[Rfam]
Nucleotides: 058
Stems, first nucleotide, its partner, number of pairs: 009050007026043006
Number, partner (000 for none) and nucleotide at each position: 001000g002000g003000u004000c005000c006000c007000g008000a009050c010049c011048u012047u013046u014045u015044a016000c017000u018000c019000g020000g021000a022000u023000c024000g025000u026043c027042c028041g029040g030039c031038a032000c033000g034000u035000u036000c037000c038031u039030g040029c041028c042027g043026g044015u045014g046013g047012a048011a049010g050009g051000a052000u053000u054000c055000a056000u057000c058000c
The family of this 58-nucleotide sequence from Allocatelliglobosispora scoriae is "msiK RNA". The family's consensus secondary structure is taken from published work. NCBI's taxonomy places the organism under Bacteria, Bacillati, Actinomycetota, Micromonosporales, Allocatelliglobosispora.